Record summary: A member of the RNA family "Small nucleolar RNA snoR53Y" from Cannabis sativa, 82 nucleotides long. For this family Rfam cites "Multiple snoRNA gene clusters from Arabidopsis" (Brown et al., RNA, 2001). The match comes from Rfam's covariance-model search (64 bits). Lineage of the source: Eukaryota > Spermatophyta > eudicotyledons > Rosales > Cannabis.

[Rfam]
RNA sequence: AUUCCCUGUGAUGCUAUAACUUACCAUGCUAAUUCUGAUCAUUGAAGUAGUGAUUGAUUCUUACUUUGUUUCUGAGGGAAUU
Numbered sequence: 001a002u003u004c005c006c007u008g009u010g011a012u013g014c015u016a017u018a019a020c021u022u023a024c025c026a027u028g029c030u031a032a033u034u035c036u037g038a039u040c041a042u043u044g045a046a047g048u049a050g051u052g053a054u055u056g057a058u059u060c061u062u063a064c065u066u067u068g069u070u071u072c073u074g075a076g077g078g079a080a081u082u
Stems, first nucleotide, its partner, number of pairs: 001081007